[Rfam]
Annotation:
Flavobacterium-1 RNA: a 121-nucleotide RNA. Rfam classes the family as a small RNA.
Nucleotides: 121
Base pairs, nucleotide, nucleotide: 001079002078003077004076005075006073008071009045010044011043012042014040015039021032022031023030048068049067056064057063082120083119084118085117086116087115088114089113090112091111092110100107101106
Number, partner (000 for none) and nucleotide at each position: 001079c002078a003077a004076g005075u006073u007000a008071g009045g010044g011043g012042u013000a014040c015039a016000a017000a018000u019000c020000u021032u022031g023030c024000c025000u026000a027000u028000g029000a030023g031022c032021a033000u034000u035000u036000c037000c038000c039015u040014g041000g042012a043011c044010c045009u046000a047000a048068g049067c050000a051000g052000u053000g054000a055000c056064c057063u058000g059000a060000a061000a062000g063057g064056g065000u066000a067049g068048c069000g070000u071008c072000g073006a074000u075005a076004c077003u078002u079001g080000g081000a082120c083119c084118a085117g086116c087115a088114g089113c090112g091111c092110u093000g094000a095000g096000u097000c098000a099000c100107c101106u102000g103000a104000u105000c106101a107100g108000u109000g110092a111091g112090c113089g114088u115087u116086g117085c118084u119083g120082g121000u